[Rfam]
RNA sequence: CCGUCCGCCCCGUGAUCGUCUUCUCAGCCUUCGCGUGCGGACGUGUCCACCGGAAGGCCCCCGUGAGGACGUGACUCACGGGGGCCUUCC
Number, nucleotide and partner (000 for none) at each position: 001c000002c043003g042004u041005c040006c039007g038008c037009c000010c035011c000012g034013u033014g032015a031016u000017c000018g028019u027020c000021u000022u000023c000024u000025c000026a000027g019028c018029c000030u000031u015032c014033g013034c012035g010036u000037g008038c007039g006040g005041a004042c003043g002044u000045g000046u000047c000048c000049a000050c000051c000052g090053g089054a088055a087056g086057g085058c084059c083060c082061c081062c080063g079064u078065g077066a076067g075068g000069a000070c000071g000072u000073g000074a000075c067076u066077c065078a064079c063080g062081g061082g060083g059084g058085c057086c056087u055088u054089c053090c052
Rfam assigns this 90-nucleotide sequence to the family "sodF sRNA".
It is annotated as a small RNA.
Rfam links the family to the GO terms mRNA binding, regulation of mRNA stability and negative regulation of translation.
The match comes from Rfam's covariance-model search (72 bits).